[Rfam]
RNA sequence: AUGUUAUCAAGAAAGGCCGAGGGAUUAGACCCUAUGACGCCUUAGCAACCCUUUCUCCGGAAUGAAGGUGCUACAUUCUACAACGAUCGCGACAAUUAUCGAGAUCAACGAUAGAUAACGA
Numbered sequence: 001a002u003g004u005u006a007u008c009a010a011g012a013a014a015g016g017c018c019g020a021g022g023g024a025u026u027a028g029a030c031c032c033u034a035u036g037a038c039g040c041c042u043u044a045g046c047a048a049c050c051c052u053u054u055c056u057c058c059g060g061a062a063u064g065a066a067g068g069u070g071c072u073a074c075a076u077u078c079u080a081c082a083a084c085g086a087u088c089g090c091g092a093c094a095a096u097u098a099u100c101g102a103g104a105u106c107a108a109c110g111a112u113a114g115a116u117a118a119c120g121a
Stems, first nucleotide, its partner, number of pairs: 002120007013043005021032003026080004044072004049068002051064001053062002076113001081110001
RNA: SAM riboswitch aptamer (S box leader)